[Rfam]
RNA sequence: UCAUCACCAUCAUCAUACGCAGUAGCCUUCGGAUGCUUAACUGCCGAAGGUUUUUGUCCUUUCGGUGGUGAUACCUAUCAUUAAACCCCUGAAAGGAAUUUCAGGGGUUUUUUUAU
Numbered sequence: 001u002c003a004u005c006a007c008c009a010u011c012a013u014c015a016u017a018c019g020c021a022g023u024a025g026c027c028u029u030c031g032g033a034u035g036c037u038u039a040a041c042u043g044c045c046g047a048a049g050g051u052u053u054u055u056g057u058c059c060u061u062u063c064g065g066u067g068g069u070g071a072u073a074c075c076u077a078u079c080a081u082u083a084a085a086c087c088c089c090u091g092a093a094a095g096g097a098a099u100u101u102c103a104g105g106g107g108u109u110u111u112u113u114u115a116u
Base pairs, nucleotide, nucleotide: 008043009042011035012034013033014032044065045064046063047061048060049059050058080113083110084109085108086107087106088105089104090103091102092101093100094099
Dot-bracket structure: .......((.((((.................))))......))(((((((.......)))).)))..............(..((((((((((((....))))))))))))..)...